The record is a 373-nucleotide RNA from Legionella feeleii, which matches "Bacterial RNase P class A" in Rfam.
NCBI's taxonomy places the organism under Bacteria, Pseudomonadati, Gammaproteobacteria, Legionellaceae, Legionella.
RNA sequence: AGAGUCGGUCAGGCAAUCGCUCUUUGCGUAAAGCAAAGGGAGGAAAGUCCGGGCUCCGCAGGGCAGGGUGCCAGGUAACUCCUGGGAGGCGUGAGCCUACGGAAAGUGCCACAGAAAAUAUACCGCCUAUUUGUUGUUCACAACAGGUAGGUAAGGGUGAAAUGGUGUGGUAAGAGCGCACCGCACGAUUGGUAACAGUCGUGGCAGGGAAAACCCCACCCGGAGCAAGACCAAAUAGGAAUCCUUCGUUGCUGCUAUGCACGAACGUAUGGCCCGUACGGGAUUCGGGUAGGUCGCUUGAGGCAUGUGGUGACGCAUGCCCCAGAUGAAUGGUUGUCCAAGACAGAACCCGGCUUAUCGACCGACUUUUUCU
Numbered sequence: 001a002g003a004g005u006c007g008g009u010c011a012g013g014c015a016a017u018c019g020c021u022c023u024u025u026g027c028g029u030a031a032a033g034c035a036a037a038g039g040g041a042g043g044a045a046a047g048u049c050c051g052g053g054c055u056c057c058g059c060a061g062g063g064c065a066g067g068g069u070g071c072c073a074g075g076u077a078a079c080u081c082c083u084g085g086g087a088g089g090c091g092u093g094a095g096c097c098u099a100c101g102g103a104a105a106g107u108g109c110c111a112c113a114g115a116a117a118a119u120a121u122a123c124c125g126c127c128u129a130u131u132u133g134u135u136g137u138u139c140a141c142a143a144c145a146g147g148u149a150g151g152u153a154a155g156g157g158u159g160a161a162a163u164g165g166u167g168u169g170g171u172a173a174g175a176g177c178g179c180a181c182c183g184c185a186c187g188a189u190u191g192g193u194a195a196c197a198g199u200c201g202u203g204g205c206a207g208g209g210a211a212a213a214c215c216c217c218a219c220c221c222g223g224a225g226c227a228a229g230a231c232c233a234a235a236u237a238g239g240a241a242u243c244c245u246u247c248g249u250u251g252c253u254g255c256u257a258u259g260c261a262c263g264a265a266c267g268u269a270u271g272g273c274c275c276g277u278a279c280g281g282g283a284u285u286c287g288g289g290u291a292g293g294u295c296g297c298u299u300g301a302g303g304c305a306u307g308u309g310g311u312g313a314c315g316c317a318u319g320c321c322c323c324a325g326a327u328g329a330a331u332g333g334u335u336g337u338c339c340a341a342g343a344c345a346g347a348a349c350c351c352g353g354c355u356u357a358u359c360g361a362c363c364g365a366c367u368u369u370u371u372c373u
Stems, first nucleotide, its partner, number of pairs: 001369010011358001012338007020040008045356003049353005054225004061275004066221005071085005086100001087098004101216002106214002109209002123156002125152012164182006183205001184203008229295004239286006266280005302321008